[Rfam]
Rfam assigns this 533-nucleotide part of an RNA from Pediculus humanus to the family "Eukaryotic large subunit ribosomal RNA".

RNA sequence: GGUAGUAGCAAUGACUCGAUAGAGGACCUUGAGGACUGAUGUGGAGAAGGGCUUCGUGUGAACAGCAGUUGGACACGAGUCAGUCGAUCCUAAGCACUAGGGGAAACCCGAUGCCGAUGAGAGAGAUUACGUUAAAAUUUCUCUCCACGUGCGAAAGGGAAUCCGGUUCACAUUCCGGAACCUGGCACCGGAACCGUACCAAUUUGUGGUCGGAUCCCGAUUCCGCUCGGUCGCGAGACUCUAUACGAGUUCUCGUCCGAGUCAGGAACGGAAUUCGUCGGGGUAACCCAACAAAACCCGGAGACGCCGUCUGGAGAUCCCGAAAGAGUUUUCUUUUCUCUAUGAGCGUUCGAGUUCCAUGGAAUCCUCUAGCAGGGAGAUAUGGUUUGGAACGCGAAGAGCACCGCAGUUGCGGCGGUGUCGGGAUCCUUCAAUACGGACCGUGAAAAUCCGGGGGACGGCCACGUGGAGGCGUCGAGCCAGAUCGUACCCAUAUCCGCAGCAGGUCUCCAAGGUUAGCAGCCUCUAGUCGG
Numbered sequence: 001g002g003u004a005g006u007a008g009c010a011a012u013g014a015c016u017c018g019a020u021a022g023a024g025g026a027c028c029u030u031g032a033g034g035a036c037u038g039a040u041g042u043g044g045a046g047a048a049g050g051g052c053u054u055c056g057u058g059u060g061a062a063c064a065g066c067a068g069u070u071g072g073a074c075a076c077g078a079g080u081c082a083g084u085c086g087a088u089c090c091u092a093a094g095c096a097c098u099a100g101g102g103g104a105a106a107c108c109c110g111a112u113g114c115c116g117a118u119g120a121g122a123g124a125g126a127u128u129a130c131g132u133u134a135a136a137a138u139u140u141c142u143c144u145c146c147a148c149g150u151g152c153g154a155a156a157g158g159g160a161a162u163c164c165g166g167u168u169c170a171c172a173u174u175c176c177g178g179a180a181c182c183u184g185g186c187a188c189c190g191g192a193a194c195c196g197u198a199c200c201a202a203u204u205u206g207u208g209g210u211c212g213g214a215u216c217c218c219g220a221u222u223c224c225g226c227u228c229g230g231u232c233g234c235g236a237g238a239c240u241c242u243a244u245a246c247g248a249g250u251u252c253u254c255g256u257c258c259g260a261g262u263c264a265g266g267a268a269c270g271g272a273a274u275u276c277g278u279c280g281g282g283g284u285a286a287c288c289c290a291a292c293a294a295a296a297c298c299c300g301g302a303g304a305c306g307c308c309g310u311c312u313g314g315a316g317a318u319c320c321c322g323a324a325a326g327a328g329u330u331u332u333c334u335u336u337u338c339u340c341u342a343u344g345a346g347c348g349u350u351c352g353a354g355u356u357c358c359a360u361g362g363a364a365u366c367c368u369c370u371a372g373c374a375g376g377g378a379g380a381u382a383u384g385g386u387u388u389g390g391a392a393c394g395c396g397a398a399g400a401g402c403a404c405c406g407c408a409g410u411u412g413c414g415g416c417g418g419u420g421u422c423g424g425g426a427u428c429c430u431u432c433a434a435u436a437c438g439g440a441c442c443g444u445g446a447a448a449a450u451c452c453g454g455g456g457g458a459c460g461g462c463c464a465c466g467u468g469g470a471g472g473c474g475u476c477g478a479g480c481c482a483g484a485u486c487g488u489a490c491c492c493a494u495a496u497c498c499g500c501a502g503c504a505g506g507u508c509u510c511c512a513a514g515g516u517u518a519g520c521a522g523c524c525u526c527u528a529g530u531c532g533g
Stems, first nucleotide, its partner, number of pairs: 015033005034531004043511004049491002054078006063071002085487003089158002094152002096112001098110001100109003119145009162179005182483004271475001274471001280289003297455006307439003312434001314432003319425003323341001325339003346395005357385005365377004402420006497506002513525004